[Rfam]
RNA sequence: AGUCAAGAGUCUUUGGCGCUGUUUUGGCGAGCGGAUUUCUUUUGCCUAUUUUGUGAGGGCUGAAGAGAUG
Numbered sequence: 001a002g003u004c005a006a007g008a009g010u011c012u013u014u015g016g017c018g019c020u021g022u023u024u025u026g027g028c029g030a031g032c033g034g035a036u037u038u039c040u041u042u043u044g045c046c047u048a049u050u051u052u053g054u055g056a057g058g059g060c061u062g063a064a065g066a067g068a069u070g
Base pairs, nucleotide, nucleotide: 010066011065012064013063014062018060019059020058022057023056024055026050027049029047031045032044033043034042035041
RNA: S-element
Organism: Gillisella ampelina